Overview
Rfam assigns this 95-nucleotide sequence from Caulobacter vibrioides to the family "caulobacter sRNA CC0734". Rfam classes the family as a small RNA. On this family, see Landt et al., Mol Microbiol 2008: "Small non-coding RNAs in Caulobacter crescentus". The base pairs follow the family's consensus structure.

[Rfam]
Nucleotides: 095
Base pairs, nucleotide, nucleotide: 010035011034012033013032014031045083046082047081048080050078051077052076059074060073061072062071
Number, partner (000 for none) and nucleotide at each position: 001000g002000u003000a004000a005000g006000c007000a008000g009000u010035u011034g012033a013032u014031u015000u016000u017000u018000g019000u020000g021000a022000u023000a024000a025000c026000c027000g028000u029000c030000a031014a032013a033012u034011c035010g036000a037000c038000c039000a040000c041000u042000u043000a044000g045083g046082g047081u048080c049000a050078c051077c052076a053000c054000u055000u056000a057000a058000c059074g060073c061072u062071g063000u064000c065000c066000a067000c068000a069000a070000a071062c072061g073060g074059c075000c076052u077051g078050g079000c080048g081047a082046c083045c084000a085000c086000u087000u088000a089000a090000g091000g092000c093000u094000g095000u